[Rfam]
RNA sequence: GCGUCGCCCAAAGAAUCGCCUUCGCAGCACACGUACAGAGAGCCGUUGCGCUCUCAUCUUACCGCUGUGGGGAAAGUCCCCGGAGGGGCAGAGUGCAUAUAUGUACCUGCGCGCGUACCAUCCGGAAAGCCCCCUUCUCUAAUCCGUUGGGGUUCGCGCGCGGGUGCCUUUCUGAAUUCUCCUCGCAUGUAGAUAGGAUUCGUCCUGUUUUUUCAUGUGAGGAGAUUGAGAGGCAGCUCUGCUUGCCUGACGCCUGGUCGUGACACGCGAAGACACGAGCGGACUGGGCGCAGGUACCGUUGCUCGUAGAUAUAGUUAUGCGAUUGCCGGCGUUUCGACGUUGGUAACUCAAUGGGGCUCACUCUCGGGCGACG
Numbered sequence: 001g002c003g004u005c006g007c008c009c010a011a012a013g014a015a016u017c018g019c020c021u022u023c024g025c026a027g028c029a030c031a032c033g034u035a036c037a038g039a040g041a042g043c044c045g046u047u048g049c050g051c052u053c054u055c056a057u058c059u060u061a062c063c064g065c066u067g068u069g070g071g072g073a074a075a076g077u078c079c080c081c082g083g084a085g086g087g088g089c090a091g092a093g094u095g096c097a098u099a100u101a102u103g104u105a106c107c108u109g110c111g112c113g114c115g116u117a118c119c120a121u122c123c124g125g126a127a128a129g130c131c132c133c134c135u136u137c138u139c140u141a142a143u144c145c146g147u148u149g150g151g152g153u154u155c156g157c158g159c160g161c162g163g164g165u166g167c168c169u170u171u172c173u174g175a176a177u178u179c180u181c182c183u184c185g186c187a188u189g190u191a192g193a194u195a196g197g198a199u200u201c202g203u204c205c206u207g208u209u210u211u212u213u214c215a216u217g218u219g220a221g222g223a224g225a226u227u228g229a230g231a232g233g234c235a236g237c238u239c240u241g242c243u244u245g246c247c248u249g250a251c252g253c254c255u256g257g258u259c260g261u262g263a264c265a266c267g268c269g270a271a272g273a274c275a276c277g278a279g280c281g282g283a284c285u286g287g288g289c290g291c292a293g294g295u296a297c298c299g300u301u302g303c304u305c306g307u308a309g310a311u312a313u314a315g316u317u318a319u320g321c322g323a324u325u326g327c328c329g330g331c332g333u334u335u336c337g338a339c340g341u342u343g344g345u346a347a348c349u350c351a352a353u354g355g356g357g358c359u360c361a362c363u364c365u366c367g368g369g370c371g372a373c374g
Stems, first nucleotide, its partner, number of pairs: 002374008011365001014325006022070007038053003042049002075359002078357004094105004241297001247293003251290007266281003327344006
A member of the RNA family "RNase MRP" from Bondarzewia mesenterica, 374 nucleotides long. Lineage of the source: Eukaryota > Agaricomycotina > Agaricomycetes > Russulales > Bondarzewia. A search with the family's covariance model found it, with a score of 115 bits.